RNA: MIR6217 microRNA precursor family
RNA sequence: UGGCUACAAAAUAUGUUAUUCUGUAGCCACUUUGAGUUACGAUAAUUACUAUAUUAAUUUACAAGAUUAUAUUAACUCCUUACUAAGUGGUUUACUAUAACAUUACGGUAAAUAUCCUCAUGUGUUAUAGUAACCCAACUAUCGUAAAUACAUAUACAUAUUAUCGUAAAUUAGUAUAUAAAAUUAUCGUAAAUAGAGGUGGCUAUAGAAUAACAUAUUUUGUAGCUA
Numbered sequence: 001u002g003g004c005u006a007c008a009a010a011a012u013a014u015g016u017u018a019u020u021c022u023g024u025a026g027c028c029a030c031u032u033u034g035a036g037u038u039a040c041g042a043u044a045a046u047u048a049c050u051a052u053a054u055u056a057a058u059u060u061a062c063a064a065g066a067u068u069a070u071a072u073u074a075a076c077u078c079c080u081u082a083c084u085a086a087g088u089g090g091u092u093u094a095c096u097a098u099a100a101c102a103u104u105a106c107g108g109u110a111a112a113u114a115u116c117c118u119c120a121u122g123u124g125u126u127a128u129a130g131u132a133a134c135c136c137a138a139c140u141a142u143c144g145u146a147a148a149u150a151c152a153u154a155u156a157c158a159u160a161u162u163a164u165c166g167u168a169a170a171u172u173a174g175u176a177u178a179u180a181a182a183a184u185u186a187u188c189g190u191a192a193a194u195a196g197a198g199g200u201g202g203c204u205a206u207a208g209a210a211u212a213a214c215a216u217a218u219u220u221u222g223u224a225g226c227u228a
Stems, first nucleotide, its partner, number of pairs: 001228033037192011050178013065165003069161003073156002080147004087142006093132011107117002